RNA sequence: GAUUGAUGCGUCUACGGAUUCAUCAACAUGUCCUUGUUUUGUUCAAGGGAGUCUAAAUCCCUCGCUUUCAAAGCGUAAACACAUGAACAAUG
Dot-bracket structure: ..((((((.(((....))).))))))....................................((((.....)))).................
This 92-nucleotide RNA sequence from Brevibacillus sp. CF112 belongs to the Rfam family "RT-9 RNA". It is annotated as a small RNA. The family's consensus secondary structure is taken from published work.